The record is a 379-nucleotide RNA from Acetobacterium bakii, which matches "T-box leader" in Rfam. It is annotated as a cis-regulatory leader. Lineage of the source: Bacteria > Bacillati > Clostridia > Eubacteriales > Acetobacterium. Its family is annotated with tRNA binding in the Gene Ontology. From the family's description: Uncharged tRNA acts as the effector for transcription antitermination of genes in the T-box leader family. T-boxes are found upstream of many aminoacyl-tRNA synthetase genes and some amino acid biosynthetic genes usually in Gram-positive bacteria. The anticodon of a specific tRNA base pairs to a specifier sequence within the T-box motif, and the NCCA acceptor tail of the tRNA base pairs to a conserved bulge in the T-box antiterminator hairpin.
RNA sequence: AAAAAGACGUUGAUGAGGAAUAGUAGUUGUUGGAUGAUUUUCAGAGAUCUGCUGGUCGGUGUGAAGCAGAAAUUAAAAAAUGACGAACUCACCUCUAAGUUGCUUGCUGAAAUUACGCCGAUAAAAUAAGGUGAAAGAGUAGGUUAAGACGGAAACCCACCGUUACAAGGGAUGGAUAUCGGUUUUAUUAAACCCGUAUUGAAGACAAACCGUAUAAAAUAGAGUGGUAUAGCAGAUUUUCGUCUGUCUCGUUUGAGACAGGCGUUUUUUUAUACAAAAAUAGUUUUCAUGGGAAGAAUAAAGGGUAUCGAGAAAGUGCAUACAGUUAGCCUGUAUGAAUAAGAGUGGUACCGCGGAAAGCUCCCUUUUCGUCUCUGGC
Numbered sequence: 001a002a003a004a005a006g007a008c009g010u011u012g013a014u015g016a017g018g019a020a021u022a023g024u025a026g027u028u029g030u031u032g033g034a035u036g037a038u039u040u041u042c043a044g045a046g047a048u049c050u051g052c053u054g055g056u057c058g059g060u061g062u063g064a065a066g067c068a069g070a071a072a073u074u075a076a077a078a079a080a081u082g083a084c085g086a087a088c089u090c091a092c093c094u095c096u097a098a099g100u101u102g103c104u105u106g107c108u109g110a111a112a113u114u115a116c117g118c119c120g121a122u123a124a125a126a127u128a129a130g131g132u133g134a135a136a137g138a139g140u141a142g143g144u145u146a147a148g149a150c151g152g153a154a155a156c157c158c159a160c161c162g163u164u165a166c167a168a169g170g171g172a173u174g175g176a177u178a179u180c181g182g183u184u185u186u187a188u189u190a191a192a193c194c195c196g197u198a199u200u201g202a203a204g205a206c207a208a209a210c211c212g213u214a215u216a217a218a219a220u221a222g223a224g225u226g227g228u229a230u231a232g233c234a235g236a237u238u239u240u241c242g243u244c245u246g247u248c249u250c251g252u253u254u255g256a257g258a259c260a261g262g263c264g265u266u267u268u269u270u271u272a273u274a275c276a277a278a279a280a281u282a283g284u285u286u287u288c289a290u291g292g293g294a295a296g297a298a299u300a301a302a303g304g305g306u307a308u309c310g311a312g313a314a315a316g317u318g319c320a321u322a323c324a325g326u327u328a329g330c331c332u333g334u335a336u337g338a339a340u341a342a343g344a345g346u347g348g349u350a351c352c353g354c355g356g357a358a359a360g361c362u363c364c365c366u367u368u369u370c371g372u373c374u375c376u377g378g379c
Stems, first nucleotide, its partner, number of pairs: 007100002015095004026084006037073003048070006103148004107143002150162003319337007342376004353372007